[Rfam]
RNA sequence: GAGAGAGGAGGAGCGGCUGUCGGUAGGCUCUCUGAGCCGGCUGAGGAAAGUCCCCCCACCAGCUGGAGACACGAACACCGGAAGGUGUAGGGCGAGAGUCCUGGCUCUGGCACAGAAACGACACGGCACUGUGUUAAUGCGAUGAUGCAGAGAUGCUGAGGUCGCACAGCUGCCGAUGAAACGGCGAAUCCUCGUGGGUGCAAGCCAAUCUGGGUAGAUGAGAUCCAGCCGAUACCCAAGUAGGGCGCGAAGAUAGAUGCCGCUUAAAACAGAAGGGGGCUUACCAUCCUCACUC
Number, nucleotide and partner (000 for none) at each position: 001g295002a294003g293004a000005g291006a290007g289008g288009a287010g285011g284012a264013g263014c262015g261016g260017c259018u000019g000020u000021c043022g042023g041024u040025a000026g000027g000028c000029u000030c000031u000032c000033u000034g000035a000036g000037c000038c000039g000040g024041c023042u022043g021044a000045g000046g000047a000048a282049a281050g280051u000052c279053c278054c277055c276056c275057c200058a199059c198060c197061a000062g229063c228064u227065g226066g225067a000068g000069a000070c196071a195072c194073g193074a192075a088076c087077a086078c085079c084080g000081g000082a000083a000084g079085g078086u077087g076088u075089a102090g101091g100092g099093c098094g000095a000096g000097a000098g093099u092100c091101c090102u089103g191104g190105c000106u000107c000108u187109g000110g185111c184112a000113c000114a000115g000116a000117a000118a000119c000120g000121a000122c000123a000124c175125g174126g173127c172128a171129c169130u168131g167132u166133g165134u164135u000136a000137a000138u000139g000140c000141g000142a000143u000144g000145a000146u000147g156148c155149a000150g000151a000152g000153a000154u000155g148156c147157u000158g000159a000160g000161g000162u000163c000164g134165c133166a132167c131168a130169g129170c000171u128172g127173c126174c125175g124176a000177u000178g000179a000180a000181a000182c000183g000184g111185c110186g000187a108188a000189u000190c104191c103192u074193c073194g072195u071196g070197g060198g059199u058200g057201c000202a000203a000204g246205c245206c243207a000208a000209u000210c000211u000212g237213g236214g235215u234216a233217g000218a000219u000220g000221a000222g000223a000224u000225c066226c065227a064228g063229c062230c000231g000232a000233u216234a215235c214236c213237c212238a000239a000240g000241u000242a000243g206244g000245g205246c204247g000248c000249g000250a000251a000252g000253a000254u000255a000256g000257a000258u000259g017260c016261c015262g014263c013264u012265u000266a000267a000268a000269a000270c000271a000272g000273a000274a000275g056276g055277g054278g053279g052280c050281u049282u048283a000284c011285c010286a000287u009288c008289c007290u006291c005292a000293c003294u002295c001
Source information
This 295-nucleotide sequence from Candidatus Syntropharchaeum butanivorans belongs to the Rfam family "Archaeal RNase P". Rfam links the family to the GO terms tRNA processing, ribonuclease P activity and multimeric ribonuclease P complex. The match comes from Rfam's covariance-model search (214 bits). The organism belongs to Candidatus Syntropharchaeum, within Archaea. Rfam's curators write: Ribonuclease P (RNase P) is a ubiquitous endoribonuclease, found in archaea, bacteria and eukarya as well as chloroplasts and mitochondria. Its best characterised activity is the generation of mature 5'-ends of tRNAs by cleaving the 5'-leader elements of precursor-tRNAs. Cellular RNase Ps are ribonucleoproteins. RNA from bacterial RNase Ps retains its catalytic activity in the absence of the protein subunit, i.e. it is a ribozyme. Isolated eukaryotic and archaeal RNase P RNA has not been shown to retain its catalytic function, but is still essential for the catalytic activity of the holoenzyme. Although the archaeal and eukaryotic holoenzymes have a much greater protein content than the bacterial ones, the RNA cores from all the three lineages are homologous -- helices corresponding to P1, P2, P3, P4, and P10/11 are common to all cellular RNase P RNAs. Yet, there is considerable sequence variation, particularly among the eukaryotic RNAs.